A member of the RNA family "Small nucleolar RNA SNORA42/SNORA80 family" from Carlito syrichta, 136 nucleotides long. It scores 125 bits against the family's covariance model. Pairs were carried over by alignment from the consensus structure, which was predicted with RNAalifold. A reference for the family is Schattner et al. (2006), "A computational screen for mammalian pseudouridylation guide H/ACA RNAs", RNA. Rfam's curators write: The members of this family belong to the H/ACA class of snoRNAs that guide the sites of modification of uridines to pseudouridines. Human ACA42 (SNORA42) was cloned from HeLa cells by immunoprecipitation with anti-GAR1 antibody. Its is predicted to guide the pseudouridylation of residues U109 and U572 of 18S rRNA. ACA42 shares the same host gene with ACA26, ACA46, ACA50. NCBI's taxonomy places the organism under Eukaryota, Metazoa, Tetrapoda, Tarsiiformes, Carlito.
RNA sequence: GCAUGGGUUUGGAUUUAUGACAGGCUCGUCCCCCUGGGCUUCUCAUUGUACCCCAUGCCAGAGCAAACGGUGUCCUCGAACCAUUGCUUGGCCUCUGUGCCCAUAAGCUGCUGGCACUCAAGAGGGCUACACAGUG
Numbered sequence: 001g002c003a004u005g006g007g008u009u010u011g012g013a014u015u016u017a018u019g020a021c022a023g024g025c026u027c028g029u030c031c032c033c034c035u036g037g038g039c040u041u042c043u044c045a046u047u048g049u050a051c052c053c054c055a056u057g058c059c060a061g062a063g064c065a066a067a068c069g070g071u072g073u074c075c076u077c078g079a080a081c082c083a084u085u086g087c088u089u090g091g092c093c094u095c096u097g098u099g100c101c102c103a104u105a106a107g108c109u110g111c112u113g114g115c116a117c118u119c120a121a122g123a124g125g126g127c128u129a130c131a132c133a134g135u136g
Stems, first nucleotide, its partner, number of pairs: 001058004005053004015048001017046004022041003025037002071129002074126003083118001087114002089110004094105001